RNA: Small nucleolar RNA SNORD121A
Organism: Eleutherodactylus coqui
RNA sequence: AUCCGGAGCACAAUGAUGUUCAUCUUUCCAAGCACAUAUCUGAACUGUGUCUGUGGAGAACAAUAAUUCUGAGUGAUCCGGAU
Numbered sequence: 001a002u003c004c005g006g007a008g009c010a011c012a013a014u015g016a017u018g019u020u021c022a023u024c025u026u027u028c029c030a031a032g033c034a035c036a037u038a039u040c041u042g043a044a045c046u047g048u049g050u051c052u053g054u055g056g057a058g059a060a061c062a063a064u065a066a067u068u069c070u071g072a073g074u075g076a077u078c079c080g081g082a083u
Stems, first nucleotide, its partner, number of pairs: 001083006009075003